[Rfam]
RNA sequence: CAAAUGUACCCAAAGGCAGUAUUUGGUAUUUCCAUUCAUUAAUUUAAUAGGGAAUAAUAAUAGAAUUGACAUUUA
Numbered sequence: 001c002a003a004a005u006g007u008a009c010c011c012a013a014a015g016g017c018a019g020u021a022u023u024u025g026g027u028a029u030u031u032c033c034a035u036u037c038a039u040u041a042a043u044u045u046a047a048u049a050g051g052g053a054a055u056a057a058u059a060a061u062a063g064a065a066u067u068g069a070c071a072u073u074u075a
Base pairs, nucleotide, nucleotide: 002074003073004072005071006070010026011025012024013023014022027056028055029054030053031052032051033050